[Rfam]
About this RNA:
Rfam assigns this 68-nucleotide RNA from Vibrio ezurae to the family "Fluoride riboswitch aptamer (crcB RNA motif)". A search with the family's covariance model found it, with a score of 62 bits. NCBI's taxonomy places the organism under Bacteria, Pseudomonadati, Vibrionales, Vibrionaceae, Vibrio ezurae.

RNA sequence: AAUUGCACAGGUGAUGGGGUUCCACCUACUUAACCGCCAAAUCAUUGGCUGAUGACUCCUACUAAAAU
Numbered sequence: 001a002a003u004u005g006c007a008c009a010g011g012u013g014a015u016g017g018g019g020u021u022c023c024a025c026c027u028a029c030u031u032a033a034c035c036g037c038c039a040a041a042u043c044a045u046u047g048g049c050u051g052a053u054g055a056c057u058c059c060u061a062c063u064a065a066a067a068u
Stems, first nucleotide, its partner, number of pairs: 010026004016059006036049004